Rfam assigns this 350-nucleotide sequence from Candidatus Atelocyanobacterium thalassae to the family "Bacterial RNase P class A".
RNA sequence: AGAGUUGGCGAGAGAGUUGCGGGUUAUUAAAAUCAAAUAAUCUGAGGAAAGUCCGGACUCCCAAAAGAUCAAACUUGCUGGAUAAUACCCAGUGCGCGCGAGCGUGAGGACAGUGUCACAGAAAAAUACCGCCUUGAUAAAAGGUAAGGGUGCAAAGGUAUGGUAAGAGCAUACCAGCAGUAUUGUGAGAUACUGGCUCGGCAAACCCCAGUUGGGAGCAAGGUCGAAGGGAUAUAGGUUGAUCUUUUUCCAAUCCCAUCUAGGUGUACCGCAAGAGAUAUUUGGUAACAAAUAUCCCAGAUAGAUAACUCUCCUUUAGAACAAAAUCCGGCUUAUGUCCAACUCUUUUU
Number, nucleotide and partner (000 for none) at each position: 001a346002g345003a344004g343005u342006u341007g340008g339009c000010g000011a336012g313013a312014g311015a310016g309017u308018u307019g000020c044021g043022g042023g041024u040025u039026a038027u037028u036029a000030a000031a000032a000033u000034c000035a000036a028037a027038u026039a025040a024041u023042c022043u021044g020045a000046g000047g000048a000049a334050a333051g332052u000053c331054c330055g329056g328057a327058c218059u217060c216061c215062c000063a000064a000065a000066a000067g250068a249069u000070c000071a000072a213073a212074c211075u000076u210077g209078c092079u091080g090081g089082a000083u000084a000085a000086u000087a000088c000089c081090c080091a079092g078093u107094g105095c104096g103097c102098g000099c000100g000101a000102g097103c096104g095105u094106g000107a093108g208109g207110a000111c000112a000113g206114u205115g202116u201117c200118a000119c000120a000121g000122a000123a000124a000125a000126a000127u000128a000129c149130c148131g145132c144133c143134u142135u141136g000137a000138u000139a000140a000141a135142a134143g133144g132145u131146a000147a000148g130149g129150g000151u000152g000153c000154a000155a000156a000157g175158g174159u173160a172161u171162g170163g000164u000165a000166a000167g000168a000169g000170c162171a161172u160173a159174c158175c157176a000177g197178c195179a194180g193181u192182a191183u190184u189185g000186u000187g000188a000189g184190a183191u182192a181193c180194u179195g178196g000197c177198u000199c000200g117201g116202c115203a000204a000205a114206c113207c109208c108209c077210a076211g074212u073213u072214g000215g061216g060217a059218g058219c000220a000221a000222g270223g269224u268225c000226g000227a000228a000229g000230g000231g000232a261233u000234a259235u258236a000237g256238g000239u000240u000241g255242a254243u253244c000245u000246u000247u000248u000249u068250c067251c000252a000253a243254u242255c241256c237257c000258a235259u234260c000261u232262a000263g000264g000265u000266g000267u000268a224269c223270c222271g000272c000273a000274a000275g000276a000277g296278a295279u294280a293281u292282u291283u290284g289285g000286u000287a000288a000289c284290a283291a282292a281293u280294a279295u278296c277297c000298c000299a000300g000301a000302u000303a000304g000305a000306u000307a018308a017309c016310u015311c014312u013313c012314c000315u000316u000317u000318a000319g000320a000321a000322c000323a000324a000325a000326a000327u057328c056329c055330g054331g053332c051333u050334u049335a000336u011337g000338u000339c008340c007341a006342a005343c004344u003345c002346u001347u000348u000349u000350u000

Gene Ontology terms of the family: tRNA processing, dimeric ribonuclease P complex and ribonuclease P activity. The match comes from Rfam's covariance-model search (257 bits). Taxonomically the source falls in Candidatus Atelocyanobacterium thalassae (Bacteria, Bacillati, Aphanothecaceae, Candidatus Atelocyanobacterium).